The record is a 90-nucleotide sequence from Chara braunii, which matches "Small nucleolar RNA SNORD24" in Rfam.
By type it is a C/D-box small nucleolar RNA.
On this family, see Qu et al., Nucleic Acids Res 1995: "U24, a novel intron-encoded small nucleolar RNA with two 12 nt long, phylogenetically conserved complementarities to 28S rRNA".
Pairs were carried over by alignment from the consensus structure, which was predicted with PFOLD.
Taxonomically the source falls in Chara (Eukaryota, Streptophytina, Charales, Characeae).

RNA sequence: GGCCAAUGAUGUAAAUUAAAGUUUGCUACUCUUGACAGCGGCUGUGAUGCAGUGCUGUGUGAGAUGCUAUUACCACCAAGAUCUGAGGCC
Numbered sequence: 001g002g003c004c005a006a007u008g009a010u011g012u013a014a015a016u017u018a019a020a021g022u023u024u025g026c027u028a029c030u031c032u033u034g035a036c037a038g039c040g041g042c043u044g045u046g047a048u049g050c051a052g053u054g055c056u057g058u059g060u061g062a063g064a065u066g067c068u069a070u071u072a073c074c075a076c077c078a079a080g081a082u083c084u085g086a087g088g089c090c
Stems, first nucleotide, its partner, number of pairs: 001090004